[Rfam]
RNA sequence: GCCCGCGCCAAGGGGUGUUUACCGCAUUGCGGUUGACUGAGAUGUCGUAUGACGAACCCUUAGAACCUGAUCCGGCUAGUACCGGCGUAGGAAUGGGCCACAAUUCGUGC
Numbered sequence: 001g002c003c004c005g006c007g008c009c010a011a012g013g014g015g016u017g018u019u020u021a022c023c024g025c026a027u028u029g030c031g032g033u034u035g036a037c038u039g040a041g042a043u044g045u046c047g048u049a050u051g052a053c054g055a056a057c058c059c060u061u062a063g064a065a066c067c068u069g070a071u072c073c074g075g076c077u078a079g080u081a082c083c084g085g086c087g088u089a090g091g092a093a094u095g096g097g098c099c100a101c102a103a104u105u106c107g108u109g110c
Stems, first nucleotide, its partner, number of pairs: 008096003011060004016054001017037003021033004044053003066091004072085004

The record is a 110-nucleotide RNA from Shewanella algae, which matches "TPP riboswitch aptamer (THI element)" in Rfam. A search with the family's covariance model found it, with a score of 66 bits. For this family Rfam cites "Comparative genomics of thiamin biosynthesis in procaryotes. New genes and regulatory mechanisms" (Rodionov et al., J Biol Chem, 2002). Rfam links the family to the GO term thiamine pyrophosphate binding. Lineage of the source: Bacteria > Gammaproteobacteria > Alteromonadales > Shewanellaceae > Shewanella.